[Rfam]
RNA: THF (Tetrahydrofolate) riboswitch aptamer
Organism: Ruminiclostridium cellulolyticum
RNA sequence: GGCAGAGUAGAUUUUUGUGCGUUAAGUGCCGGAAGGACGGGAAGUUGCCUUUCGGACGAAAAACAAUAAUUUUUAUUGUUUGCGGUACAAAUAUCGCAUUCCGCUGCC
Numbered sequence: 001g002g003c004a005g006a007g008u009a010g011a012u013u014u015u016u017g018u019g020c021g022u023u024a025a026g027u028g029c030c031g032g033a034a035g036g037a038c039g040g041g042a043a044g045u046u047g048c049c050u051u052u053c054g055g056a057c058g059a060a061a062a063a064c065a066a067u068a069a070u071u072u073u074u075a076u077u078g079u080u081u082g083c084g085g086u087a088c089a090a091a092u093a094u095c096g097c098a099u100u101c102c103g104c105u106g107c108c
Stems, first nucleotide, its partner, number of pairs: 001108005010095003014091006020084003026057002029055008040101003044097001061081008